[Rfam]
RNA sequence: UUCUAAUCUAUACGGAUUCCUUAUAUAAAUGUGGAAAUAAGGUCCACAAGUCUCUACCUGGCUACCGUAAAUGGCCGGACUAUAAGGAAAGUUAGCUGAUGA
Numbered sequence: 001u002u003c004u005a006a007u008c009u010a011u012a013c014g015g016a017u018u019c020c021u022u023a024u025a026u027a028a029a030u031g032u033g034g035a036a037a038u039a040a041g042g043u044c045c046a047c048a049a050g051u052c053u054c055u056a057c058c059u060g061g062c063u064a065c066c067g068u069a070a071a072u073g074g075c076c077g078g079a080c081u082a083u084a085a086g087g088a089a090a091g092u093u094a095g096c097u098g099a100u101g102a
Base pairs, nucleotide, nucleotide: 018088019087020086021085022084023083024082025081030048031047032046033045034044035043058078059077060076061075062074063073064072
Purine riboswitch aptamer: a 102-nucleotide RNA from Halobacillus karajensis. The family's consensus secondary structure is taken from published work.